[Rfam]
RNA sequence: GGUCUAUAAUCCGAGACCUAAAAGGCGGAUGAUUCGUUGGGCGAUGGUUAAAGCCCUAAAACAACCUA
Numbered sequence: 001g002g003u004c005u006a007u008a009a010u011c012c013g014a015g016a017c018c019u020a021a022a023a024g025g026c027g028g029a030u031g032a033u034u035c036g037u038u039g040g041g042c043g044a045u046g047g048u049u050a051a052a053g054c055c056c057u058a059a060a061a062c063a064a065c066c067u068a
Stems, first nucleotide, its partner, number of pairs: 001018004010029004040055003
A member of the RNA family "GP20-b RNA", 68 nucleotides long. The family's consensus secondary structure is taken from published work. It is annotated as a cis-regulatory element.